[Rfam]
RNA sequence: GCCCCAGCUAGUCCGGCCAGACGAAAAGCGGGAAACCUUCGCCCGCCUGCUGGGGCACCCAAUGAAGG
Numbered sequence: 001g002c003c004c005c006a007g008c009u010a011g012u013c014c015g016g017c018c019a020g021a022c023g024a025a026a027a028g029c030g031g032g033a034a035a036c037c038u039u040c041g042c043c044c045g046c047c048u049g050c051u052g053g054g055g056c057a058c059c060c061a062a063u064g065a066a067g068g
Stems, first nucleotide, its partner, number of pairs: 001056008011022003028046005036068005
Rfam assigns this 68-nucleotide sequence from Uliginosibacterium sp. TH139 to the family "int-alpA RNA". The family's RNA type in Rfam is small RNA. It scores 67 bits against the family's covariance model. The family has 167 seed sequences and 577 matches in Rfam 15.1. The base pairs follow the family's consensus structure, which is taken from published work.